[Rfam]
RNA: c-di-AMP riboswitch aptamer (ydaO/yuaA leader)
RNA sequence: GUCGCGAAAGCGCCGUAGGCAGGAGCGGGGGAACCAAGGUAGGCGCCGGAACGGUCCAGCCGAUCAUCCGAUCGACAGGGGCGGGACGGCUUGGGGUGAAGCCGAGUGUGCACCGCACACCAGGCCGGGCAACUCACAGCCCGAACCCGACAGCUCACCUCGUAGGCGUCGGUGAGGAAACCG
Number, nucleotide and partner (000 for none) at each position: 001g000002u000003c000004g000005c000006g000007a000008a000009a000010g000011c168012g167013c166014c165015g000016u000017a000018g000019g000020c000021a000022g000023g000024a000025g163026c162027g161028g160029g159030g158031g000032a000033a000034c000035c093036a092037a091038g090039g000040u000041a000042g000043g000044c000045g000046c000047c000048g000049g000050a000051a000052c000053g000054g000055u000056c000057c000058a000059g000060c000061c000062g000063a000064u000065c000066a000067u000068c000069c000070g000071a000072u000073c000074g000075a000076c000077a000078g000079g000080g000081g000082c000083g000084g000085g000086a000087c000088g000089g000090c038091u037092u036093g035094g148095g147096g146097u000098g000099a000100a000101g000102c124103c123104g000105a000106g000107u000108g000109u000110g000111c000112a000113c000114c000115g000116c000117a000118c000119a000120c000121c000122a000123g103124g102125c000126c000127g142128g141129g140130c139131a000132a000133c000134u000135c000136a000137c000138a000139g130140c129141c128142c127143g000144a000145a000146c096147c095148c094149g000150a000151c000152a000153g000154c000155u000156c000157a000158c030159c029160u028161c027162g026163u025164a000165g014166g013167c012168g011169u000170c000171g000172g000173u000174g000175a000176g000177g000178a000179a000180a000181c000182c000183g000